The record is a 76-nucleotide RNA sequence from Mus musculus, which matches "mir-95 microRNA precursor family" in Rfam. Its family is annotated with response to bacterium, miRNA-mediated post-transcriptional gene silencing and RISC complex in the Gene Ontology. Pairs were carried over by alignment from the consensus structure, which was predicted with RNAalifold. The organism belongs to Mus, within Eukaryota.

RNA sequence: CAUUGUAGGCCUCAUUAAAUGUUUGUUGAAUGAAAAAAUGAAUCAUCAACAGACAUUAAUUGGGCGCCUGCUCUGU
Numbered sequence: 001c002a003u004u005g006u007a008g009g010c011c012u013c014a015u016u017a018a019a020u021g022u023u024u025g026u027u028g029a030a031u032g033a034a035a036a037a038a039u040g041a042a043u044c045a046u047c048a049a050c051a052g053a054c055a056u057u058a059a060u061u062g063g064g065c066g067c068c069u070g071c072u073c074u075g076u
Stems, first nucleotide, its partner, number of pairs: 002076002005071006011064004015059002018057012031045003